[Rfam]
RNA sequence: CUCUGGAAAGCGGCGCGCAUCCUCGUGAGGCGCGCCCACCGACGGGGGUAACCUGCGGCGACGCGGGGAAAUCUCUCAGGUCCUCGAGACAGAG
Numbered sequence: 001c002u003c004u005g006g007a008a009a010g011c012g013g014c015g016c017g018c019a020u021c022c023u024c025g026u027g028a029g030g031c032g033c034g035c036c037c038a039c040c041g042a043c044g045g046g047g048g049u050a051a052c053c054u055g056c057g058g059c060g061a062c063g064c065g066g067g068g069a070a071a072u073c074u075c076u077c078a079g080g081u082c083c084u085c086g087a088g089a090c091a092g093a094g
Stems, first nucleotide, its partner, number of pairs: 001094005012036007038081003041077002045075003052068002
RNA: Glycine riboswitch aptamer
Organism: Methylosinus sp. 3S-1